[Rfam]
RNA sequence: CAUAUUCUCCACGAGGAAGGGUGAGAACCCUUGACCAGGGUUCGACAGCCGCCACCGGCGGCUGGACGAUGCGCCCCGCGCAUCGCCCGCAGGGCGAGCCGGGCAGCGCCCGGUGAGUCAAUCCCUUCCUCACCGCAU
Numbered sequence: 001c002a003u004a005u006u007c008u009c010c011a012c013g014a015g016g017a018a019g020g021g022u023g024a025g026a027a028c029c030c031u032u033g034a035c036c037a038g039g040g041u042u043c044g045a046c047a048g049c050c051g052c053c054a055c056c057g058g059c060g061g062c063u064g065g066a067c068g069a070u071g072c073g074c075c076c077c078g079c080g081c082a083u084c085g086c087c088c089g090c091a092g093g094g095c096g097a098g099c100c101g102g103g104c105a106g107c108g109c110c111c112g113g114u115g116a117g118u119c120a121a122u123c124c125c126u127u128c129c130u131c132a133c134c135g136c137a138u
Stems, first nucleotide, its partner, number of pairs: 015129007022121001032096002035094002041091001043089002048059002067085006
Description: A member of the RNA family "RtT RNA" from Shimwellia blattae, 138 nucleotides long. The family's RNA type in Rfam is cis-regulatory element. The match comes from Rfam's covariance-model search (49 bits). A reference for the family is Bosl and Kersten (1991), "A novel RNA product of the tyrT operon of Escherichia coli", Nucleic Acids Res. This family represents a bacterial cis-regulatory element known as RtT RNA. The exact function of RtT is unknown although it is thought that it may be involved in changing the cellular response in relation to amino acid starvation. Gene Ontology term of the family: cellular response to amino acid starvation.